Shown here is a 129-nucleotide sequence from Caenorhabditis brenneri, a member of the family "Caenorhabditis snoRNA ceN43".
The base pairs follow the family's consensus structure, which was predicted with RNAalifold.
RNA sequence: UGCCCGGUCUUUGCCCCGGAUCAACUAAAAUAGUUAUGACGGUUUCCGACACGGGAAAAUGGAAUAUUGCACGACGACAGAAAUUUCAGACCUCGCUCCGAAUGACUCUUGUCGAUGUGCAAAACAUUU
Numbered sequence: 001u002g003c004c005c006g007g008u009c010u011u012u013g014c015c016c017c018g019g020a021u022c023a024a025c026u027a028a029a030a031u032a033g034u035u036a037u038g039a040c041g042g043u044u045u046c047c048g049a050c051a052c053g054g055g056a057a058a059a060u061g062g063a064a065u066a067u068u069g070c071a072c073g074a075c076g077a078c079a080g081a082a083a084u085u086u087c088a089g090a091c092c093u094c095g096c097u098c099c100g101a102a103u104g105a106c107u108c109u110u111g112u113c114g115a116u117g118u119g120c121a122a123a124a125c126a127u128u129u
Stems, first nucleotide, its partner, number of pairs: 003055004007050003016042003023035004067122007075114004079109003085102003089098002